[Rfam]
RNA sequence: GGUCAUGCUUUUCCACAGCUUUCUUGAACUUUCUUUGAGCACUAACUCCGUCUUAAGGGAGAAAGAAAAAAAAAAACAUAACAUUUGCUAGCGCACCAUGGAAGCUCAAGAAAGCUGUGGGAAAACAUGAUGG
Numbered sequence: 001g002g003u004c005a006u007g008c009u010u011u012u013c014c015a016c017a018g019c020u021u022u023c024u025u026g027a028a029c030u031u032u033c034u035u036u037g038a039g040c041a042c043u044a045a046c047u048c049c050g051u052c053u054u055a056a057g058g059g060a061g062a063a064a065g066a067a068a069a070a071a072a073a074a075a076a077c078a079u080a081a082c083a084u085u086u087g088c089u090a091g092c093g094c095a096c097c098a099u100g101g102a103a104g105c106u107c108a109a110g111a112a113a114g115c116u117g118u119g120g121g122a123a124a125a126c127a128u129g130a131u132g133g
Base pairs, nucleotide, nucleotide: 003130004129005128006127007126013120014119015118017116018115019114020113021112022111024109025108026107027106029104030103031102032101033100
The family of this 133-nucleotide sequence from Gossypium australe is "MIR396 microRNA precursor family". It scores 82 bits against the family's covariance model. The literature on the family includes a 2004 paper in Mol Cell by Jones-Rhoades and Bartel, "Computational identification of plant microRNAs and their targets, including a stress-induced miRNA".